[Rfam]
RNA: c-di-AMP riboswitch aptamer (ydaO/yuaA leader)
Organism: Nostocoides jenkinsii
RNA sequence: UGCCGUCGAGAGCUUCCCGCUCGGAUGGCCGGGGGACCCACUAGCGGCCGCUCGCGGCCUUGGGGUGAAGCCGGUGCGCCGGCGGGGAACCUGACUUCCCUAACCCGACAGCUAACCCCGGCGGCGCCAGUCAGGAAAGGA
Numbered sequence: 001u002g003c004c005g006u007c008g009a010g011a012g013c014u015u016c017c018c019g020c021u022c023g024g025a026u027g028g029c030c031g032g033g034g035g036a037c038c039c040a041c042u043a044g045c046g047g048c049c050g051c052u053c054g055c056g057g058c059c060u061u062g063g064g065g066u067g068a069a070g071c072c073g074g075u076g077c078g079c080c081g082g083c084g085g086g087g088a089a090c091c092u093g094a095c096u097u098c099c100c101u102a103a104c105c106c107g108a109c110a111g112c113u114a115a116c117c118c119c120g121g122c123g124g125c126g127c128c129a130g131u132c133a134g135g136a137a138a139g140g141a
Stems, first nucleotide, its partner, number of pairs: 001126004029121006039062002063106003071082004085100004